Nucleotides: 100
Stems, first nucleotide, its partner, number of pairs: 004097003008093001011090004016084006023077008032068004
Number, partner (000 for none) and nucleotide at each position: 001000g002000a003000g004097u005096c006095g007000c008093a009000u010000g011090u012089g013088a014087g015000a016084a017083u018082u019081g020080g021079a022000g023077g024076g025075a026074a027073u028072u029071a030070a031000a032068c033067a034066a035065a036000a037000u038000u039000a040000a041000u042000c043000u044000u045000g046000a047000c048000u049000c050000u051000c052000g053000a054000g055000u056000g057000a058000u059000a060000a061000g062000u063000a064000u065035u066034u067033u068032g069000u070030u071029u072028a073027a074026u075025u076024u077023c078000c079021u080020c081019c082018a083017a084016u085000a086000u087014c088013u089012c090011a091000c092000c093008u094000c095006c096005g097004g098000c099000a100000u
MIR2275 microRNA precursor family: a 100-nucleotide RNA sequence from Rosa chinensis. Rfam links the family to the GO terms miRNA-mediated post-transcriptional gene silencing and RISC complex.